[Rfam]
RNA sequence: AAAAUCUUGUAUGACCGGCGGAUAAUGUGGGAAAAACUCACAGGGAUUACAAGAGGAUAUAUAAGAGCCGACCGCCUGGGCAAAUUCU
Numbered sequence: 001a002a003a004a005u006c007u008u009g010u011a012u013g014a015c016c017g018g019c020g021g022a023u024a025a026u027g028u029g030g031g032a033a034a035a036a037c038u039c040a041c042a043g044g045g046a047u048u049a050c051a052a053g054a055g056g057a058u059a060u061a062u063a064a065g066a067g068c069c070g071a072c073c074g075c076c077u078g079g080g081c082a083a084a085u086u087c088u
Stems, first nucleotide, its partner, number of pairs: 005054007015044002017076005027041003030037001067081003
About this RNA:
Rfam assigns this 88-nucleotide sequence from Hypnocyclicus thermotrophus to the family "ZMP/ZTP riboswitch aptamer (pfl RNA motif)". The match comes from Rfam's covariance-model search (52 bits). A reference for the family is Jones and Ferre-D'Amare (2015), "Recognition of the bacterial alarmone ZMP through long-distance association of two RNA subdomains", Nat Struct Mol Biol.